[Rfam]
Nucleotides: 074
Stems, first nucleotide, its partner, number of pairs: 001074003005071002011065005018059002020055004024049002027046002032041001
Number, partner (000 for none) and nucleotide at each position: 001074g002073g003072c004000u005071u006070c007000c008000a009000g010000a011065g012064a013063u014062g015061g016000a017000g018059g019058c020055a021054u022053g023052c024049c025048c026000u027046g028045g029000g030000a031000g032041g033000c034000c035000c036000a037000u038000g039000a040000c041032u042000g043000g044000a045028c046027u047000g048025g049024g050000a051000u052023g053022u054021a055020u056000u057000u058019g059018u060000a061015c062014u063013g064012u065011c066000u067000g068000a069000u070006g071005g072003g073002c074001u
Background: The record is a 74-nucleotide sequence from Peromyscus maniculatus, which matches "Small nucleolar RNA ZL2" in Rfam. Rfam classes the family as a C/D-box small nucleolar RNA. Rfam 15.1 lists 126 matches to the family in 125 species. The literature on the family includes a 2013 paper in Genome Biol by Kishore et al., "Insights into snoRNA biogenesis and processing from PAR-CLIP of snoRNA core proteins and small RNA sequencing".